The family of this 88-nucleotide RNA sequence from Mobiluncus mulieris is "sRNA-Xcc1".
Rfam classes the family as a small RNA.
The source organism's lineage runs through Bacteria, Actinomycetes, Actinomycetaceae, Mobiluncus and Mobiluncus mulieris.
The family's consensus secondary structure was predicted with RNAalifold.

[Rfam]
RNA sequence: GCCGGGAGUACGCCGGGAAUAAAAGACCCGUAAGGGGAAUACCGGCUGGCCGACUUUCUGCGGUUUUUCUAGCUCCCGGUGCUUUCUU
Numbered sequence: 001g002c003c004g005g006g007a008g009u010a011c012g013c014c015g016g017g018a019a020u021a022a023a024a025g026a027c028c029c030g031u032a033a034g035g036g037g038a039a040u041a042c043c044g045g046c047u048g049g050c051c052g053a054c055u056u057u058c059u060g061c062g063g064u065u066u067u068u069c070u071a072g073c074u075c076c077c078g079g080u081g082c083u084u085u086c087u088u
Base pairs, nucleotide, nucleotide: 001080002079003078004077005076006075007074008073009072012046013045014044015043018040027036028035029034048065049064050063051062052061